[Rfam]
MIR2617 microRNA precursor family: an 88-nucleotide RNA sequence from Medicago truncatula.

RNA sequence: AUGAAGUGUGACAUGCCUGUUUGGGAUUUACUCUGAUGUAUGAUUAUCUAUUAUUUAAUUGUUUUGGGUAACUUGGUGUUACAAUUGG
Numbered sequence: 001a002u003g004a005a006g007u008g009u010g011a012c013a014u015g016c017c018u019g020u021u022u023g024g025g026a027u028u029u030a031c032u033c034u035g036a037u038g039u040a041u042g043a044u045u046a047u048c049u050a051u052u053a054u055u056u057a058a059u060u061g062u063u064u065u066g067g068g069u070a071a072c073u074u075g076g077u078g079u080u081a082c083a084a085u086u087g088g
Stems, first nucleotide, its partner, number of pairs: 002088001004086002007083008016075001019072003
Rfam 15.1 lists 1,174 matches to the family in 2 species. Its family is annotated with miRNA-mediated post-transcriptional gene silencing and RISC complex in the Gene Ontology.